[Rfam]
RNA sequence: AGCGCCAAAGCCAAACCCAUUGCGAAAUGGGGACGGAAAGCCACGGGUCUCGAAAUAGAAUUUCCGACACCUGCUUGCUGGAUUUAUCAGGCCCUUCUUCAGGACUUUGGUUUCAAAGACAGCCGAGCUGCCGAGG
Dot-bracket structure: ..((......((...((((((....))))))..[))..(((..((((((....................................................................))).]))).)))..))...
Numbered sequence: 001a002g003c004g005c006c007a008a009a010g011c012c013a014a015a016c017c018c019a020u021u022g023c024g025a026a027a028u029g030g031g032g033a034c035g036g037a038a039a040g041c042c043a044c045g046g047g048u049c050u051c052g053a054a055a056u057a058g059a060a061u062u063u064c065c066g067a068c069a070c071c072u073g074c075u076u077g078c079u080g081g082a083u084u085u086a087u088c089a090g091g092c093c094c095u096u097c098u099u100c101a102g103g104a105c106u107u108u109g110g111u112u113u114c115a116a117a118g119a120c121a122g123c124c125g126a127g128c129u130g131c132c133g134a135g136g
Stems, first nucleotide, its partner, number of pairs: 003133002011036002016031006034122001039129003044125003047120003
The record is a 136-nucleotide sequence from Desulfatitalea alkaliphila, which matches "c-di-GMP-I-GGC riboswitch aptamer" in Rfam. Pairs were carried over by alignment from the consensus structure, which is taken from published work. Lineage of the source: Bacteria > Pseudomonadati > Thermodesulfobacteriota > Desulfobacteria > Desulfatitalea.